RNA sequence: CGGCAAUCAACGGGGAGCUCACACGAGUGGGCUGAGAGGAUGGGUACUGUCCCAUCGACCCUUCGAACCUGCUCCGGGUAAUGCCGGCGUAGGGAAAGACAGGCGGCGUUGC
Numbered sequence: 001c002g003g004c005a006a007u008c009a010a011c012g013g014g015g016a017g018c019u020c021a022c023a024c025g026a027g028u029g030g031g032c033u034g035a036g037a038g039g040a041u042g043g044g045u046a047c048u049g050u051c052c053c054a055u056c057g058a059c060c061c062u063u064c065g066a067a068c069c070u071g072c073u074c075c076g077g078g079u080a081a082u083g084c085c086g087g088c089g090u091a092g093g094g095a096a097a098g099a100c101a102g103g104c105g106g107c108g109u110u111g112c
Stems, first nucleotide, its partner, number of pairs: 007099002012061003017032005039056005068093004074087004
RNA: TPP riboswitch aptamer (THI element)